The family of this 98-nucleotide RNA sequence from Zea mays is "Small nucleolar RNA R30/Z108". About the family: snoR30 is a C/D box small nucleolar RNA which acts as a methylation guide for 18S ribosomal RNA in plants. NCBI's taxonomy places the organism under Eukaryota, Streptophyta, Tracheophyta, commelinids, Zea. It scores 96 bits against the family's covariance model. The family's consensus secondary structure was predicted with PFOLD.
[Rfam]
RNA sequence: UAUUGUUGCGAUGAGGAUACCAAGCUCCCUCUUCUGAAAGCAGUGAGGACACUUGCCGGCAGAAUCGAACCAAUAACCUUAUUGCCACCACUGAGUAA
Numbered sequence: 001u002a003u004u005g006u007u008g009c010g011a012u013g014a015g016g017a018u019a020c021c022a023a024g025c026u027c028c029c030u031c032u033u034c035u036g037a038a039a040g041c042a043g044u045g046a047g048g049a050c051a052c053u054u055g056c057c058g059g060c061a062g063a064a065u066c067g068a069a070c071c072a073a074u075a076a077c078c079u080u081a082u083u084g085c086c087a088c089c090a091c092u093g094a095g096u097a098a
Base pairs, nucleotide, nucleotide: 006098007097008096009095